[Rfam]
RNA sequence: AACUAUGACUCAACCUUUUGAGGGUCAUUAAAGCGGCGUGAAAACGUUCGCUAGUGAUCUGAAGCCUUUUCAGGUUGCGACACUGUCAAAUUGCGGGGAAGCCCUAAAGAUUCAACUACUAAGCAGCUUGUGGAAACACAGCUGUGGCCGAGUUAAUAGCCCUGGGUAUAGUAACAAUGUUGAAUAUGAAUCUUGAUUGAAGAUGAAAUGGGUGAUCCGCAGCCAAGUCCUAAGGACGUAUAAUGUCUAUGGAUGCAGUUCAACGACUAGAUGGCAGUGGGUGUUGUUAAGACUUAGGUUUUUACAAUGCUUAAGGUAUAGUCUAUUCUCUAUCGAAAGAUAGCG
Numbered sequence: 001a002a003c004u005a006u007g008a009c010u011c012a013a014c015c016u017u018u019u020g021a022g023g024g025u026c027a028u029u030a031a032a033g034c035g036g037c038g039u040g041a042a043a044a045c046g047u048u049c050g051c052u053a054g055u056g057a058u059c060u061g062a063a064g065c066c067u068u069u070u071c072a073g074g075u076u077g078c079g080a081c082a083c084u085g086u087c088a089a090a091u092u093g094c095g096g097g098g099a100a101g102c103c104c105u106a107a108a109g110a111u112u113c114a115a116c117u118a119c120u121a122a123g124c125a126g127c128u129u130g131u132g133g134a135a136a137c138a139c140a141g142c143u144g145u146g147g148c149c150g151a152g153u154u155a156a157u158a159g160c161c162c163u164g165g166g167u168a169u170a171g172u173a174a175c176a177a178u179g180u181u182g183a184a185u186a187u188g189a190a191u192c193u194u195g196a197u198u199g200a201a202g203a204u205g206a207a208a209u210g211g212g213u214g215a216u217c218c219g220c221a222g223c224c225a226a227g228u229c230c231u232a233a234g235g236a237c238g239u240a241u242a243a244u245g246u247c248u249a250u251g252g253a254u255g256c257a258g259u260u261c262a263a264c265g266a267c268u269a270g271a272u273g274g275c276a277g278u279g280g281g282u283g284u285u286g287u288u289a290a291g292a293c294u295u296a297g298g299u300u301u302u303u304a305c306a307a308u309g310c311u312u313a314a315g316g317u318a319u320a321g322u323c324u325a326u327u328c329u330c331u332a333u334c335g336a337a338a339g340a341u342a343g344c345g
Stems, first nucleotide, its partner, number of pairs: 006023001081279005087273002092221006102212003222259002227254004235247005263324001265323005281310007289302001330343005
This 345-nucleotide RNA sequence from Pneumocystis wakefieldiae belongs to the Rfam family "Group I catalytic intron". It scores 121 bits against the family's covariance model. Group I catalytic introns are large self-splicing ribozymes. They catalyse their own excision from mRNA, tRNA and rRNA precursors in a wide range of organisms. The core secondary structure consists of 9 paired regions (P1-P9). These fold to essentially two domains - the P4-P6 domain (formed from the stacking of P5, P4, P6 and P6a helices) and the P3-P9 domain (formed from the P8, P3, P7 and P9 helices). The secondary structure mark-up for this family represents only this conserved core. Group I catalytic introns often have long ORFs inserted in loop regions. The window size for this search is chosen to minimise search time and catch the small examples. A larger window size will find more matches. Rfam 15.1 lists 5,602 matches to the family in 1,395 species. The literature on the family includes a 1990 paper in Annu Rev Biochem by Cech, "Self-splicing of group I introns".